[Rfam]
RNA sequence: AUGCAAUUCUCUUUGGUUAUCUAGCUGUAUGAGUGUCACCUAUGCGUCAUAAAGCUAGGUUACCAAAGAUAAGUGUAG
Numbered sequence: 001a002u003g004c005a006a007u008u009c010u011c012u013u014u015g016g017u018u019a020u021c022u023a024g025c026u027g028u029a030u031g032a033g034u035g036u037c038a039c040c041u042a043u044g045c046g047u048c049a050u051a052a053a054g055c056u057a058g059g060u061u062a063c064c065a066a067a068g069a070u071a072a073g074u075g076u077a078g
Base pairs, nucleotide, nucleotide: 002077003076004075005074007072008071010069011068012067013066014065015064016063017062019060020059021058022057023056024055025054026053028051029050030049031048032047
A member of the RNA family "mir-9/mir-79 microRNA precursor family" from Acanthaster planci, 78 nucleotides long. On this family, see Lagos-Quintana et al., Curr Biol 2002: "Identification of tissue-specific microRNAs from mouse". Its family is annotated with miRNA-mediated post-transcriptional gene silencing and RISC complex in the Gene Ontology. The family's consensus secondary structure was predicted with RNAalifold. It scores 75 bits against the family's covariance model.